[Rfam]
RNA sequence: CAGUAGAGUAGAGGUGCGGGCAACAAUAGUACUUUCAGGGAGCGUGGUACCAAUGAUCUGAAAGAAAAGGGUUGACCGCCGAAGUAUCAAUAAUACCGUAUUUUUGAUACUGGUCUGGCAUUUAACAGGUGUCAGACUGUCACCAAGCUAGCUUGGUGGAGUGCUAUCUCAUUU
Numbered sequence: 001c002a003g004u005a006g007a008g009u010a011g012a013g014g015u016g017c018g019g020g021c022a023a024c025a026a027u028a029g030u031a032c033u034u035u036c037a038g039g040g041a042g043c044g045u046g047g048u049a050c051c052a053a054u055g056a057u058c059u060g061a062a063a064g065a066a067a068a069g070g071g072u073u074g075a076c077c078g079c080c081g082a083a084g085u086a087u088c089a090a091u092a093a094u095a096c097c098g099u100a101u102u103u104u105u106g107a108u109a110c111u112g113g114u115c116u117g118g119c120a121u122u123u124a125a126c127a128g129g130u131g132u133c134a135g136a137c138u139g140u141c142a143c144c145a146a147g148c149u150a151g152c153u154u155g156g157u158g159g160a161g162u163g164c165u166a167u168c169u170c171a172u173u174u
Stems, first nucleotide, its partner, number of pairs: 006169001008167004016079004021074004032064008083111008092102003112138011140159007

The family of this 174-nucleotide sequence from Dendrosporobacter quercicolus is "Lysine riboswitch aptamer". It scores 124 bits against the family's covariance model. About the family: Riboswitches are metabolite binding domains within certain messenger RNAs that serve as precision sensors for their corresponding targets. Lineage of the source: Bacteria > Bacillota > Selenomonadales > Sporomusaceae > Dendrosporobacter.